[Rfam]
RNA: Actino-pnp RNA
RNA sequence: AGCGGUCUUCGGUAGUGGCUCCCGGAACGCAGAUCGGCGUCCGGCAGCUUCGAUCGAUGGCCGUC
Numbered sequence: 001a002g003c004g005g006u007c008u009u010c011g012g013u014a015g016u017g018g019c020u021c022c023c024g025g026a027a028c029g030c031a032g033a034u035c036g037g038c039g040u041c042c043g044g045c046a047g048c049u050u051c052g053a054u055c056g057a058u059g060g061c062c063g064u065c
Base pairs, nucleotide, nucleotide: 002064003063004062005061006060007059009057010056011055012054013053017049018048019047020046022044023043024042025041026040028039029038030037